[Rfam]
RNA sequence: GUACCUUUCUCGGCCUUUUGGCUAAGAUCAAGUGUAGUAUCUGUUCUUAUUAGUUUAAUAUCUGAUACGUGGGUUAUUAGUUCACAAGAUAUUAACUCAUUUUUUUUUAGGUGGAAGACUCAUGGGUUAUUAGUUCACAAGAUAUUAACUCAUUUUUUUUUAGGUGGAAGACUCAUUAAGAUAAUUUUGCUGUCUGAGCCUUUGGGCAUCGCCUUGGUGUUGCACUAUUGUCUCGGCUUGGAGCACCUCAC
Numbered sequence: 001g002u003a004c005c006u007u008u009c010u011c012g013g014c015c016u017u018u019u020g021g022c023u024a025a026g027a028u029c030a031a032g033u034g035u036a037g038u039a040u041c042u043g044u045u046c047u048u049a050u051u052a053g054u055u056u057a058a059u060a061u062c063u064g065a066u067a068c069g070u071g072g073g074u075u076a077u078u079a080g081u082u083c084a085c086a087a088g089a090u091a092u093u094a095a096c097u098c099a100u101u102u103u104u105u106u107u108u109a110g111g112u113g114g115a116a117g118a119c120u121c122a123u124g125g126g127u128u129a130u131u132a133g134u135u136c137a138c139a140a141g142a143u144a145u146u147a148a149c150u151c152a153u154u155u156u157u158u159u160u161u162a163g164g165u166g167g168a169a170g171a172c173u174c175a176u177u178a179a180g181a182u183a184a185u186u187u188u189g190c191u192g193u194c195u196g197a198g199c200c201u202u203u204g205g206g207c208a209u210c211g212c213c214u215u216g217g218u219g220u221u222g223c224a225c226u227a228u229u230g231u232c233u234c235g236g237c238u239u240g241g242a243g244c245a246c247c248u249c250a251c
Base pairs, nucleotide, nucleotide: 008027009026010025012023013022014021015020048067049066050065051064052063053062069085070084071083072082073081074080075079114203115202116201117200119198120197121196206244207243209241210240211239213235216232217231218230